[Rfam]
RNA sequence: UGACAGUGAUGAAUUGAUUAGGUCUCGUUCGUCGUAAUUGGCCAAAUUGGCCUUGCCGAUCAUCCUCAUUUUCUUCUGAGUCC
Number, nucleotide and partner (000 for none) at each position: 001u000002g082003a081004c080005a000006g000007u000008g000009a000010u000011g000012a000013a000014u000015u000016g000017a000018u000019u000020a000021g000022g000023u000024c000025u000026c000027g000028u000029u000030c000031g000032u000033c000034g000035u000036a000037a000038u000039u000040g000041g000042c000043c000044a054045a053046a000047u000048u000049g000050g000051c000052c000053u045054u044055g000056c000057c000058g000059a000060u000061c000062a000063u000064c000065c000066u000067c000068a000069u000070u000071u000072u000073c000074u000075u000076c000077u000078g000079a000080g004081u003082c002083c000